Description
This 76-nucleotide sequence from Aphanothece sacrum belongs to the Rfam family "Cyano-1 RNA". By type it is a small RNA. The source organism's lineage runs through Bacteria, Bacillati, Cyanobacteriota, Chroococcales and Aphanothece sacrum.
RNA sequence: UUGUGUGUGAGGAGUAAAACGUUUUAUAAAAGCCUUUGGAGUCGAAACACGGUCAGACGUUCAAGGGCUUUUUUAU
Numbered sequence: 001u002u003g004u005g006u007g008u009g010a011g012g013a014g015u016a017a018a019a020c021g022u023u024u025u026a027u028a029a030a031a032g033c034c035u036u037u038g039g040a041g042u043c044g045a046a047a048c049a050c051g052g053u054c055a056g057a058c059g060u061u062c063a064a065g066g067g068c069u070u071u072u073u074u075a076u
Base pairs, nucleotide, nucleotide: 028072029071030070031069032068033067034066038062039061040060041058042057043056